The family of this 89-nucleotide sequence from Adiantum capillus-veneris is "Small nucleolar RNA SNORD25". A reference for the family is Tycowski et al. (1996), "A mammalian gene with introns instead of exons generating stable RNA products", Nature. Rfam 15.1 lists 985 matches to the family in 241 species. It scores 58 bits against the family's covariance model. The source organism's lineage runs through Eukaryota, Streptophyta, Streptophytina, Pteridaceae and Adiantum. Clan: SNORD25 clan. Rfam classes the family as a C/D-box small nucleolar RNA.
Nucleotides: 089
Base pairs, nucleotide, nucleotide: 002088003087004086005085006084
Number, partner (000 for none) and nucleotide at each position: 001000c002088a003087g004086c005085a006084c007000g008000g009000u010000g011000a012000u013000g014000a015000g016000u017000c018000a019000u020000u021000u022000g023000u024000a025000u026000c027000g028000c029000a030000u031000c032000a033000g034000c035000g036000a037000c038000g039000a040000g041000u042000u043000g044000c045000g046000g047000a048000c049000a050000u051000g052000a053000u054000c055000g056000c057000a058000a059000a060000a061000u062000c063000u064000a065000a066000g067000a068000a069000c070000a071000u072000c073000u074000a075000a076000g077000g078000g079000a080000c081000u082000g083000a084006g085005u086004g087003c088002u089000g